Background
Rfam assigns this 94-nucleotide RNA sequence from Scyliorhinus torazame to the family "Small nucleolar RNA SNORD103/SNORD85". The base pairs follow the family's consensus structure. Rfam links the family to the GO terms RNA processing and nucleolus. Rfam classes the family as a C/D-box small nucleolar RNA. Lineage of the source: Eukaryota > Gnathostomata > Selachii > Galeoidea > Scyliorhinus. A search with the family's covariance model found it, with a score of 46 bits. Rfam 15.1 lists 1,349 matches to the family in 595 species.
RNA sequence: ACUGGCGAUGAUAACACACUUGCCCUCACUGAGAGCUGGUACAAACUGCUCGUUAAUGAGAUUAAUUUCUGUACUCCUUAUGAGCUGAGCCAAG
Numbered sequence: 001a002c003u004g005g006c007g008a009u010g011a012u013a014a015c016a017c018a019c020u021u022g023c024c025c026u027c028a029c030u031g032a033g034a035g036c037u038g039g040u041a042c043a044a045a046c047u048g049c050u051c052g053u054u055a056a057u058g059a060g061a062u063u064a065a066u067u068u069c070u071g072u073a074c075u076c077c078u079u080a081u082g083a084g085c086u087g088a089g090c091c092a093a094g
Stems, first nucleotide, its partner, number of pairs: 002094001003092004